The family of this 84-nucleotide RNA from Trogon melanurus is "Small nucleolar RNA U2-19". Rfam classes the family as a C/D-box small nucleolar RNA. It scores 74 bits against the family's covariance model.
RNA sequence: GAUCUGUGAUGAAAAAUAGCCAAAGCUGACCACCAGAAGAUAAAAUAAUCUUCCAGGUGUCAUGAUUUCUGUGCAGUUCUGAGA
Numbered sequence: 001g002a003u004c005u006g007u008g009a010u011g012a013a014a015a016a017u018a019g020c021c022a023a024a025g026c027u028g029a030c031c032a033c034c035a036g037a038a039g040a041u042a043a044a045a046u047a048a049u050c051u052u053c054c055a056g057g058u059g060u061c062a063u064g065a066u067u068u069c070u071g072u073g074c075a076g077u078u079c080u081g082a083g084a
Stems, first nucleotide, its partner, number of pairs: 031059004038051004
Pairs were carried over by alignment from the consensus structure, which is taken from published work. Gene Ontology terms of the family: nucleolus and RNA processing.